[Rfam]
The family of this 88-nucleotide RNA sequence from Nicotiana tabacum is "MIR6149 microRNA precursor family".
RNA sequence: AUGUCAAAGCUUGAUACGCACCUGAAUCGGCAACUACGUACAGACCAAUACAUAUGCCGAUCUGGGUUCGUAUCAAACUAUGAUAUAC
Numbered sequence: 001a002u003g004u005c006a007a008a009g010c011u012u013g014a015u016a017c018g019c020a021c022c023u024g025a026a027u028c029g030g031c032a033a034c035u036a037c038g039u040a041c042a043g044a045c046c047a048a049u050a051c052a053u054a055u056g057c058c059g060a061u062c063u064g065g066g067u068u069c070g071u072a073u074c075a076a077a078c079u080a081u082g083a084u085a086u087a088c
Stems, first nucleotide, its partner, number of pairs: 001086006008079002011076008020067005026061007
Annotation: Gene Ontology terms of the family: miRNA-mediated post-transcriptional gene silencing and RISC complex. The organism belongs to Nicotiana, within Eukaryota.